[Rfam]
Notes: A member of the RNA family "Fluoride riboswitch aptamer (crcB RNA motif)" from Streptomyces sp. SID4985, 69 nucleotides long. The match comes from Rfam's covariance-model search (40 bits). Gene Ontology terms of the family: response to fluoride and positive regulation of gene expression.
RNA sequence: AGCACUCGCGGCGAUGAGGCUCGCCGUAACCGCGGACGCGAACGCGCCGCUGAUGGCCUCUGCCGACAG
Numbered sequence: 001a002g003c004a005c006u007c008g009c010g011g012c013g014a015u016g017a018g019g020c021u022c023g024c025c026g027u028a029a030c031c032g033c034g035g036a037c038g039c040g041a042a043c044g045c046g047c048c049g050c051u052g053a054u055g056g057c058c059u060c061u062g063c064c065g066a067c068a069g
Stems, first nucleotide, its partner, number of pairs: 010025004016060006032050004